U4 spliceosomal RNA: a 142-nucleotide sequence from Tetranychus urticae. Pairs were carried over by alignment from the consensus structure, which is taken from published work. The family's RNA type in Rfam is spliceosomal small nuclear RNA. U4 small nuclear RNA (U4 snRNA) is a component of the major U2-dependent spliceosome.
RNA sequence: AGCUUUGCGCAGAGGCAGUACCUCAGGCUAUGAAGGAUUUCCUGAGCCGAGGUUAUUGCUGGUUGAAAACUUUUCCCAAUACCCCGCCAUGACGACGUGAAAUACCGUCGGCUUUGGCAAUUUUUGGAAGCCCUAACCGGGC
Numbered sequence: 001a002g003c004u005u006u007g008c009g010c011a012g013a014g015g016c017a018g019u020a021c022c023u024c025a026g027g028c029u030a031u032g033a034a035g036g037a038u039u040u041c042c043u044g045a046g047c048c049g050a051g052g053u054u055a056u057u058g059c060u061g062g063u064u065g066a067a068a069a070c071u072u073u074u075c076c077c078a079a080u081a082c083c084c085c086g087c088c089a090u091g092a093c094g095a096c097g098u099g100a101a102a103u104a105c106c107g108u109c110g111g112c113u114u115u116g117g118c119a120a121u122u123u124u125u126g127g128a129a130g131c132c133c134u135a136a137c138c139g140g141g142c
Base pairs, nucleotide, nucleotide: 020053021052022051023050024049026048027047028046034043035042036041086118087117088116089114091112093110094109095108096107097106132141133140134139